The family of this 193-nucleotide sequence from Medicago truncatula is "U2 spliceosomal RNA".
NCBI's taxonomy places the organism under Eukaryota, Viridiplantae, Streptophytina, Gunneridae, Medicago.
Pairs were carried over by alignment from the consensus structure, which is taken from published work.
Its family is annotated with pre-mRNA branch point binding, U2 snRNP and mRNA branch site recognition in the Gene Ontology.
U2 is a small nuclear RNA (snRNA) component of the spliceosome (involved in pre-mRNA splicing).
For this family Rfam cites "The uRNA database" (Zwieb, Nucleic Acids Res, 1997).
[Rfam]
RNA sequence: AUAACUAUAUAUUUUCUUUGUUAUCAAGUGUAGUAUCUGUUUUUUAUCGGUUUAAUAACUGAUAUCUGGUCCAAUGAAUCAUACGAUAUUAAAUUACUUUUUUGAGGAGGAGAAAUCAUCUAUGUAGUUUAUUGUUGGACUUCUCAUAUUUCGCUUAUGCGUUGCACUAUUGCAUAAAUCUGACGCACCCCAU
Numbered sequence: 001a002u003a004a005c006u007a008u009a010u011a012u013u014u015u016c017u018u019u020g021u022u023a024u025c026a027a028g029u030g031u032a033g034u035a036u037c038u039g040u041u042u043u044u045u046a047u048c049g050g051u052u053u054a055a056u057a058a059c060u061g062a063u064a065u066c067u068g069g070u071c072c073a074a075u076g077a078a079u080c081a082u083a084c085g086a087u088a089u090u091a092a093a094u095u096a097c098u099u100u101u102u103u104g105a106g107g108a109g110g111a112g113a114a115a116u117c118a119u120c121u122a123u124g125u126a127g128u129u130u131a132u133u134g135u136u137g138g139a140c141u142u143c144u145c146a147u148a149u150u151u152c153g154c155u156u157a158u159g160c161g162u163u164g165c166a167c168u169a170u171u172g173c174a175u176a177a178a179u180c181u182g183a184c185g186c187a188c189c190c191c192a193u
Stems, first nucleotide, its partner, number of pairs: 008023002045064006067081004072076001110145005116139002124135004149185001151183003155177006
Dot-bracket structure: .......((............)).....................((((((........))))))..((((.(...).))))............................(((((.((......((((....))))..)).)))))...(.(((.((((((...........))))))...))).)........